[Rfam]
RNA sequence: UUCUUAUCCAGAGAGGUGGAGGGACUGGCCCGAUGAAACCCGGCAACCUGCUUAAUGCAAGGUGCUAAUUCCAGCAAAAUGUUGAUUCAUUUUGAAAGAUAAGGU
Numbered sequence: 001u002u003c004u005u006a007u008c009c010a011g012a013g014a015g016g017u018g019g020a021g022g023g024a025c026u027g028g029c030c031c032g033a034u035g036a037a038a039c040c041c042g043g044c045a046a047c048c049u050g051c052u053u054a055a056u057g058c059a060a061g062g063u064g065c066u067a068a069u070u071c072c073a074g075c076a077a078a079a080u081g082u083u084g085a086u087u088c089a090u091u092u093u094g095a096a097a098g099a100u101a102a103g104g105u
Base pairs, nucleotide, nucleotide: 002104003103004102005101006100007099008098013041015040016039017038021031022030023029025074026073027072028071042066043065044064045063047062048061049059050058051057070097075094076093077092078091079090080089
Record summary: Shown here is a 105-nucleotide RNA from Cytobacillus kochii, a member of the family "SAM riboswitch aptamer (S box leader)". The family's consensus secondary structure is taken from published work.